[Rfam]
RNA sequence: CGUUAGGCCUUGGAGCAAGGACGUGCUAACGAACCGUGUCAGGUCCGAGAGGAAGCAGCACUAAGUUUCCUACGUUCUGUGCUUCUUGUACAUAGCAAUU
Numbered sequence: 001c002g003u004u005a006g007g008c009c010u011u012g013g014a015g016c017a018a019g020g021a022c023g024u025g026c027u028a029a030c031g032a033a034c035c036g037u038g039u040c041a042g043g044u045c046c047g048a049g050a051g052g053a054a055g056c057a058g059c060a061c062u063a064a065g066u067u068u069c070c071u072a073c074g075u076u077c078u079g080u081g082c083u084u085c086u087u088g089u090a091c092a093u094a095g096c097a098a099u100u
Stems, first nucleotide, its partner, number of pairs: 004094002007091001012085004016079001018078006025070001028067003036061004044053003
Rfam assigns this 100-nucleotide RNA from Nicoliella spurrieriana to the family "Bacterial small signal recognition particle RNA". For this family Rfam cites "Prediction of signal recognition particle RNA genes" (Regalia et al., Nucleic Acids Res, 2002). The family's consensus secondary structure is taken from published work. The family's RNA type in Rfam is non-coding RNA gene. A search with the family's covariance model found it, with a score of 48 bits. NCBI's taxonomy places the organism under Bacteria, Bacillota, Bacilli, Lactobacillales, Nicoliella.